Rfam assigns this 74-nucleotide RNA to the family "L13-Bacteroidia ribosomal protein leader". A reference for the family is Eckert and Weinberg (2020), "Discovery of 20 novel ribosomal leader candidates in bacteria and archaea", BMC Microbiol.
[Rfam]
RNA sequence: GGGGUACUCUUAGAGCCCCAUACGAUGCAUGUUAAUAGUGUUGUCUUUGGCCGGGCGACAUGGUUAGGGAAAGC
Dot-bracket structure: (((((.........)))))............(((((.(((((((((......))))))))).))))).......
Pairs were carried over by alignment from the consensus structure, which is taken from published work.
By type it is a cis-regulatory leader.